Record summary:
The family of this 75-nucleotide RNA from Actinoplanes sp. N902-109 is "ASpks TB sRNA".
RNA sequence: CUUGACCGAGCCGAGCAGCACCGGCUGGUCCGCCGAGCGAUCCUGACCGUAGGUGGCAAGCAGUGCUUGUGCCUC
Numbered sequence: 001c002u003u004g005a006c007c008g009a010g011c012c013g014a015g016c017a018g019c020a021c022c023g024g025c026u027g028g029u030c031c032g033c034c035g036a037g038c039g040a041u042c043c044u045g046a047c048c049g050u051a052g053g054u055g056g057c058a059a060g061c062a063g064u065g066c067u068u069g070u071g072c073c074u075c
Base pairs, nucleotide, nucleotide: 014026015025016024031071032070033069038065039064043060044059047056048055049054